[Rfam]
RNA sequence: GCAAUUGCAACCGGGGCGCCAUCCGCCUAUAUGUCUUAUGUUCCUUCGGGGACUAUGGACAUAAACGCGCUCGUAAUAAGCGGAUCGGACCCGGGGGCGGUACCCGGCGACUCCACCAAAACUCCCUCGUUUGGGGACCAUGGGGUCGAAAUAGGAUCGACGGACGUCUAAAGGGGUUUGCUUUGUCUCGGUGAGUUACCACCGUUAUCGGUACACUUAAGCUAGUUGCAAACGACAACAAAGCUCCGGUCGCACUCGCAGCGUAAGCUGUGCGUAAGAUCGAAAUCUUAAGCCCUGUCGCCUAGCAGCGUCAGGCGGGGUUCGCAGGUACCUGGCAACAGAAACCUGCAUU
Numbered sequence: 001g002c003a004a005u006u007g008c009a010a011c012c013g014g015g016g017c018g019c020c021a022u023c024c025g026c027c028u029a030u031a032u033g034u035c036u037u038a039u040g041u042u043c044c045u046u047c048g049g050g051g052a053c054u055a056u057g058g059a060c061a062u063a064a065a066c067g068c069g070c071u072c073g074u075a076a077u078a079a080g081c082g083g084a085u086c087g088g089a090c091c092c093g094g095g096g097g098c099g100g101u102a103c104c105c106g107g108c109g110a111c112u113c114c115a116c117c118a119a120a121a122c123u124c125c126c127u128c129g130u131u132u133g134g135g136g137a138c139c140a141u142g143g144g145g146u147c148g149a150a151a152u153a154g155g156a157u158c159g160a161c162g163g164a165c166g167u168c169u170a171a172a173g174g175g176g177u178u179u180g181c182u183u184u185g186u187c188u189c190g191g192u193g194a195g196u197u198a199c200c201a202c203c204g205u206u207a208u209c210g211g212u213a214c215a216c217u218u219a220a221g222c223u224a225g226u227u228g229c230a231a232a233c234g235a236c237a238a239c240a241a242a243g244c245u246c247c248g249g250u251c252g253c254a255c256u257c258g259c260a261g262c263g264u265a266a267g268c269u270g271u272g273c274g275u276a277a278g279a280u281c282g283a284a285a286u287c288u289u290a291a292g293c294c295c296u297g298u299c300g301c302c303u304a305g306c307a308g309c310g311u312c313a314g315g316c317g318g319g320g321u322u323c324g325c326a327g328g329u330a331c332c333u334g335g336c337a338a339c340a341g342a343a344a345c346c347u348g349c350a351u352u
Stems, first nucleotide, its partner, number of pairs: 040053005057188005067181002069177004081166002085163003091107005108148007189204004195214002198212003318333004324349006
RNA: Alphaproteobacteria transfer-messenger RNA
Organism: Litoreibacter ponti